A member of the RNA family "Alphacoronavirus 3'UTR" from Alphacoronavirus miniopteri, 287 nucleotides long. The 3' UTR of alphacoronaviruses consists of two small hairpins (PK-SL2) which can form an alternate conformation (PK-SL1) where the loop region of the second hairpin interacts with the stem of the first hairpin. PK-SL2 has been confirmed in HCoV-229E and HCoV-NL63 by in vitro structure probing experiments. Downstream of this pseudoknot lies the hypervariable region (HVR), which is supported by many covarying basepairs in alphacoronaviruses. Further, a conserved octanucleotide sequence is present in the HVR. The pairing is the family consensus, mapped onto this sequence. Rfam links the family to the GO term viral RNA genome replication.
[Rfam]
RNA sequence: ACGCCGUGAGGAGCUUCCUAAUCUUGAUGCUGAAUACAUAAUCCACCCUACUGAGUCUCAGUAGUUUGGUGGCAGUCUUAUACACUAUGGUAAGCCUGUAAUUAAAUAGUAUAAGCAAUGUUUAAUUAUAUUACUAGCCUUAGAUGAAAAUUAGUUGCCUACAGUGCUACCCCUUUCGGAGUAAUUGAAAGAUCGCUUUGACGAGCCUAAUGUGGAAGAGCCGUUUGGAGUGCCUGUAGUGUUAUAAUUAGUAAUUGUAGAUAGGUGUAGUUUUGAUAGGGAUUCAC
Numbered sequence: 001a002c003g004c005c006g007u008g009a010g011g012a013g014c015u016u017c018c019u020a021a022u023c024u025u026g027a028u029g030c031u032g033a034a035u036a037c038a039u040a041a042u043c044c045a046c047c048c049u050a051c052u053g054a055g056u057c058u059c060a061g062u063a064g065u066u067u068g069g070u071g072g073c074a075g076u077c078u079u080a081u082a083c084a085c086u087a088u089g090g091u092a093a094g095c096c097u098g099u100a101a102u103u104a105a106a107u108a109g110u111a112u113a114a115g116c117a118a119u120g121u122u123u124a125a126u127u128a129u130a131u132u133a134c135u136a137g138c139c140u141u142a143g144a145u146g147a148a149a150a151u152u153a154g155u156u157g158c159c160u161a162c163a164g165u166g167c168u169a170c171c172c173c174u175u176u177c178g179g180a181g182u183a184a185u186u187g188a189a190a191g192a193u194c195g196c197u198u199u200g201a202c203g204a205g206c207c208u209a210a211u212g213u214g215g216a217a218g219a220g221c222c223g224u225u226u227g228g229a230g231u232g233c234c235u236g237u238a239g240u241g242u243u244a245u246a247a248u249u250a251g252u253a254a255u256u257g258u259a260g261a262u263a264g265g266u267g268u269a270g271u272u273u274u275g276a277u278a279g280g281g282a283u284u285c286a287c
Stems, first nucleotide, its partner, number of pairs: 077094005098129011133271004143256003150248004161237004169231002172228002177223003196205002206215002